[Rfam]
RNA sequence: CCAACAUGGAUAGCCUGGGAGGUCACUCUCCCCAGGCUCUGUGGAAGUGGUGUUGGGGAGCAUAGACGUUUGGUCCAUGAAGUACAGUACAGCCCCUUUCCACAAUGUUGGAGAUGAAGCUGGGUCUCCUGUCUGCGCCUGCAUAUUCCUAUAGCUUCCCUGAGUCCUGUGGAUGAUGACUGGUGAGACAAAUCGUGCAGGAAACAUGU
Number, nucleotide and partner (000 for none) at each position: 001c111002c110003a109004a108005c107006a106007u105008g000009g000010a042011u041012a040013g000014c036015c035016u034017g000018g029019g028020a027021g026022g000023u000024c000025a000026c021027u020028c019029u018030c000031c000032c000033c000034a016035g015036g014037c000038u000039c000040u012041g011042u010043g000044g000045a000046a000047g103048u102049g101050g100051u000052g000053u000054u000055g000056g096057g095058g094059a000060g090061c000062a088063u087064a000065g000066a083067c082068g000069u000070u000071u000072g000073g000074u000075c000076c000077a000078u000079g000080a000081a000082g067083u066084a000085c000086a000087g063088u062089a000090c060091a000092g000093c000094c058095c057096c056097u000098u000099u000100c050101c049102a048103c047104a000105a007106u006107g005108u004109u003110g002111g001112a000113g000114a000115u000116g000117a000118a000119g000120c000121u000122g000123g000124g000125u000126c000127u000128c000129c000130u000131g000132u000133c000134u000135g000136c000137g000138c201139c200140u199141g198142c197143a196144u195145a000146u000147u000148c000149c000150u000151a000152u000153a000154g000155c187156u186157u185158c000159c183160c182161u000162g000163a000164g174165u173166c172167c171168u000169g000170u000171g167172g166173a165174u164175g000176a000177u000178g000179a000180c000181u000182g160183g159184u000185g157186a156187g155188a000189c000190a000191a000192a000193u000194c000195g144196u143197g142198c141199a140200g139201g138202a000203a000204a000205c000206a000207u000208g000209u000
Shown here is a 209-nucleotide RNA from Pan troglodytes, a member of the family "Small nucleolar RNA SNORA73 family". U17 (SNORA73A and SNORA73B) also known as E1 belongs to the H/ACA class of small nucleolar RNAs (snoRNAs). Vertebrate U17 is intron-encoded and ranges in length from 200-230 nucleotides, longer than most snoRNAs. It is one of the most abundant snoRNAs in human cells and is essential for the cleavage of pre-rRNA within the 5' external transcribed spacer (ETS). This cleavage leads to the formation of 18S rRNA. Regions of the U17 RNA are complementary to rRNA and act as guides for RNA/RNA interactions, although these regions do not seem to be well conserved between organisms. Taxonomically the source falls in Pan (Eukaryota, Bilateria, Eutheria, Euarchontoglires). The family's consensus secondary structure is taken from published work. For this family Rfam cites "Comparative Structure Analysis of Vertebrate U17 Small Nucleolar RNA (snoRNA)" (Cervelli et al., J Mol Evol, 2002). The family is grouped with related families in Rfam's "snR30-U17 clan". Rfam's curators put it in the seed alignment.